[Rfam]
Nucleotides: 161
Stems, first nucleotide, its partner, number of pairs: 001034002036140004040134002046079004080123003088098004101117004
Number, partner (000 for none) and nucleotide at each position: 001034c002033c003000c004000g005000g006000g007000u008000g009000c010000g011000g012000a013000c014000c015000g016000a017000g018000u019000g020000u021000g022000a023000u024000g025000g026000a027000u028000c029000g030000g031000c032000a033002g034001g035000a036140g037139c038138g039137g040134g041133a042000g043000a044000c045000c046079c047078g048077a049076g050000c051000a052000g053000u054000a055000c056000g057000g058000a059000c060000c061000a062000c063000g064000a065000a066000c067000g068000c069000g070000g071000u072000g073000g074000u075000c076049c077048u078047c079046g080123g081122g082121g083000u084000g085000a086000a087000g088098c089097c090096a091095c092000a093000c094000c095091g096090u097089g098088g099000c100000c101117g102116g103115g104114c105000a106000a107000c108000u109000u110000c111000g112000c113000a114104g115103c116102c117101c118000g119000a120000a121082c122081c123080c124000g125000a126000c127000a128000g129000g130000u131000c132000a133041u134040c135000u136000u137039u138038c139037g140036c141000a142000g143000g144000c145000g146000g147000a148000u149000g150000c151000c152000g153000a154000a155000g156000g157000g158000c159000u160000u161000a
Rfam assigns this 161-nucleotide sequence from Streptomyces mashuensis to the family "c-di-AMP riboswitch aptamer (ydaO/yuaA leader)". A search with the family's covariance model found it, with a score of 42 bits.